[Rfam]
RNA sequence: ACACGAUAAAGGCAAACUUAUUGAAAGAUAAGGACGCAAAGCUACAGGCCUAAUGGUUAUAUGGACCUAGGGCGGCUGAGUUGCCGAA
Dot-bracket structure: ...........((...((((((....))))))...))..((((.((((((....((((.....))))...)))..)))))))......
RNA: c-di-GMP-I riboswitch aptamer